[Rfam]
RNA sequence: UGGCUUAUGAUGAUAUCAUAAAUUAUCUUAGCGGAUUUCAGUGAGAUUUAUUCUAAUCUAUGAUCUGAUUGUUACACACACUGAAGCCU
Number, nucleotide and partner (000 for none) at each position: 001u000002g088003g087004c086005u085006u000007a000008u000009g000010a000011u000012g000013a000014u000015a000016u000017c000018a000019u000020a000021a000022a000023u000024u000025a000026u000027c000028u000029u000030a000031g000032c000033g000034g000035a000036u000037u000038u000039c000040a000041g000042u000043g000044a000045g000046a000047u000048u000049u000050a000051u000052u000053c000054u000055a000056a000057u000058c000059u000060a000061u000062g000063a000064u000065c000066u000067g000068a000069u000070u000071g000072u000073u000074a000075c000076a000077c000078a000079c000080a000081c000082u000083g000084a000085a005086g004087c003088c002089u000
This 89-nucleotide sequence from Kalanchoe fedtschenkoi belongs to the Rfam family "Small nucleolar RNA R11/Z151". Rfam 15.1 lists 802 matches to the family in 218 species. Its family is annotated with nucleolus and RNA processing in the Gene Ontology. The base pairs follow the family's consensus structure, which was predicted with PFOLD.